The record is an 89-nucleotide RNA from Symbiodinium pilosum, which matches "Selenocysteine transfer RNA" in Rfam.
The family's consensus secondary structure is taken from published work.

RNA sequence: GGAAGAGCAUCGUCUCCGGUGGGGCGCGCGGCCUUCAAAGCCGUUGAGGUGCGAAUACGUGCCUGGUGGGUUCGACUCCUACCUCUUCC
Number, nucleotide and partner (000 for none) at each position: 001g089002g088003a087004a086005g085006a084007g083008c000009a000010u000011c026012g025013u024014c023015u022016c021017c000018g000019g000020u000021g016022g015023g014024g013025c012026g011027c000028g044029c043030g042031g041032c040033c000034u000035u000036c000037a000038a000039a000040g032041c031042c030043g029044u028045u000046g000047a064048g063049g062050u061051g060052c000053g000054a000055a000056u000057a000058c000059g000060u051061g050062c049063c048064u047065g000066g000067u081068g080069g079070g078071u000072u000073c000074g000075a000076c000077u000078c070079c069080u068081a067082c000083c007084u006085c005086u004087u003088c002089c001

Background: A search with the family's covariance model found it, with a score of 72 bits.